[Rfam]
RNA sequence: AAGGACACCCUUCCUCAGGCACUGAAUAUAUUGGAGAGUGGACAGUAACAGAGAAAUGAUACAAGAUGGAAAGCCAUAAAUUGAGAUUUUCUUGAAUGGGUUCAUUUAGAUAUUUCUCUUUAGCCAUUUUUGAUAAUCAAUACAGUAUUCUUGUUCCCAUCCUUGUCAGAUUAAGGAAGGAACAUUAAUUCCAAACAGGAAAAACUGUGUGUUCACUUCGUGGGUUUGCGUGUUGUACAUUUCCUUCAUCCGUGUUGGCGGUUACUUUCCUCAAUAUACCUUCAGUGCAUACAAAUUUUU
Numbered sequence: 001a002a003g004g005a006c007a008c009c010c011u012u013c014c015u016c017a018g019g020c021a022c023u024g025a026a027u028a029u030a031u032u033g034g035a036g037a038g039u040g041g042a043c044a045g046u047a048a049c050a051g052a053g054a055a056a057u058g059a060u061a062c063a064a065g066a067u068g069g070a071a072a073g074c075c076a077u078a079a080a081u082u083g084a085g086a087u088u089u090u091c092u093u094g095a096a097u098g099g100g101u102u103c104a105u106u107u108a109g110a111u112a113u114u115u116c117u118c119u120u121u122a123g124c125c126a127u128u129u130u131u132g133a134u135a136a137u138c139a140a141u142a143c144a145g146u147a148u149u150c151u152u153g154u155u156c157c158c159a160u161c162c163u164u165g166u167c168a169g170a171u172u173a174a175g176g177a178a179g180g181a182a183c184a185u186u187a188a189u190u191c192c193a194a195a196c197a198g199g200a201a202a203a204a205c206u207g208u209g210u211g212u213u214c215a216c217u218u219c220g221u222g223g224g225u226u227u228g229c230g231u232g233u234u235g236u237a238c239a240u241u242u243c244c245u246u247c248a249u250c251c252g253u254g255u256u257g258g259c260g261g262u263u264a265c266u267u268u269c270c271u272c273a274a275u276a277u278a279c280c281u282u283c284a285g286u287g288c289a290u291a292c293a294a295a296u297u298u299u300u
Stems, first nucleotide, its partner, number of pairs: 019288007060237005066231003075222003079218001082215004131139003140210007148201007250261004
RNA: Saccharomyces telomerase, nucleotides 906 to 1205